[Rfam]
RNA sequence: GAGUUACUUUACUUAGCAAGGUUAAGCCGUUAGGUGUAGCCGUAGCGAAAGCGAGUCUGAAUAGGGCGUUUAGUUAAGUGGAGUAGACCCGAAGCCGGGUGAUCUACCCAUGUCCAGGGUGAAGCGUAGGUAACACUACGUGGAGGCCCGAACCAGUAGACGUUGAAAAGUCUUUGGAUGAGGUGUGGGUAGGGGUGAAAGGCUAAUCAAACCCGGCAAUAGCUGGUU
Numbered sequence: 001g002a003g004u005u006a007c008u009u010u011a012c013u014u015a016g017c018a019a020g021g022u023u024a025a026g027c028c029g030u031u032a033g034g035u036g037u038a039g040c041c042g043u044a045g046c047g048a049a050a051g052c053g054a055g056u057c058u059g060a061a062u063a064g065g066g067c068g069u070u071u072a073g074u075u076a077a078g079u080g081g082a083g084u085a086g087a088c089c090c091g092a093a094g095c096c097g098g099g100u101g102a103u104c105u106a107c108c109c110a111u112g113u114c115c116a117g118g119g120u121g122a123a124g125c126g127u128a129g130g131u132a133a134c135a136c137u138a139c140g141u142g143g144a145g146g147c148c149c150g151a152a153c154c155a156g157u158a159g160a161c162g163u164u165g166a167a168a169a170g171u172c173u174u175u176g177g178a179u180g181a182g183g184u185g186u187g188g189g190u191a192g193g194g195g196u197g198a199a200a201g202g203c204u205a206a207u208c209a210a211a212c213c214c215g216g217c218a219a220u221a222g223c224u225g226g227u228u
Stems, first nucleotide, its partner, number of pairs: 005085013020041004026035003045052002055067004088226002091223001095216006104192011115180001117149004124141006153177003158173004194204003
Dot-bracket structure: ....(((((((((((((..((((..(((....)))..))))...((....))..((((.....)))).....)))))))))))))..((.(...((((((...((((((((((((.((((...((((((......))))))....))))...(((..((((........)))).)))..).))))))))))).(((.....)))......))))))......).))..